Rfam assigns this 186-nucleotide sequence to the family "manA RNA".
The sequence is in the family's curated seed alignment.
It is annotated as a cis-regulatory element.
About the family: manA RNA has been located in 5'UTR regions of genes of mannose or fructose metabolism. Has been proposed as a cis-regulatory element and as a riboswitch candidate for his complex secondary structure.
RNA sequence: UUACUCGACGACGGUUGAGUAAAGGGAAUGACUGAAUAAUCCUCUGACAUUGGGGAUAAGGUGCUGCUGCGUUGCUAUAUGCGAAGACCAAACGCUAGGGGGUAACGUGGUAGACUAAGGGCUACACUGAACUGUACCGUGUCACUGUCCUUAUGUGAGUAAUGCAGAAAUCUCACUUCCCACUAA
Numbered sequence: 001u002u003a004c005u006c007g008a009c010g011a012c013g014g015u016u017g018a019g020u021a022a023a024g025g026g027a028a029u030g031a032c033u034g035a036a037u038a039a040u041c042c043u044c045u046g047a048c049a050u051u052g053g054g055g056a057u058a059a060g061g062u063g064c065u066g067c068u069g070c071g072u073u074g075c076u077a078u079a080u081g082c083g084a085a086g087a088c089c090a091a092a093c094g095c096u097a098g099g100g101g102g103u104a105a106c107g108u109g110g111u112a113g114a115c116u117a118a119g120g121g122c123u124a125c126a127c128u129g130a131a132c133u134g135u136a137c138c139g140u141g142u143c144a145c146u147g148u149c150c151u152u153a154u155g156u157g158a159g160u161a162a163u164g165c166a167g168a169a170a171u172c173u174c175a176c177u178u179c180c181c182a183c184u185a186a
Base pairs, nucleotide, nucleotide: 001022002021003020004019005018006017007016008015009014024181025180026179027178028177031062032061042055043054044053045052046051065112066111067110068109069108070107071106072105073104074103075102076101116153117152118151119150120149121148122147124142125141126140127139132167133166134165135164155176156175157174158173159172